[Rfam]
RNA sequence: GUGCAAUGAUGGUUUUGGAUAAGUUUCGGCUGAAAAUUGUGAUGCCAAAUUUUUAUAUGCUGAGCAC
Numbered sequence: 001g002u003g004c005a006a007u008g009a010u011g012g013u014u015u016u017g018g019a020u021a022a023g024u025u026u027c028g029g030c031u032g033a034a035a036a037u038u039g040u041g042a043u044g045c046c047a048a049a050u051u052u053u054u055a056u057a058u059g060c061u062g063a064g065c066a067c
Base pairs, nucleotide, nucleotide: 001067002066003065004064
Shown here is a 67-nucleotide sequence from Caenorhabditis angaria, a member of the family "Caenorhabditis snoRNA ceN108". NCBI's taxonomy places the organism under Eukaryota, Metazoa, Chromadorea, Rhabditida, Caenorhabditis. On this family, see Jia et al., BMC Mol Biol 2007: "Systematic identification of non-coding RNA 2,2,7-trimethylguanosine cap structures in Caenorhabditis elegans". Pairs were carried over by alignment from the consensus structure. The family's RNA type in Rfam is C/D-box small nucleolar RNA.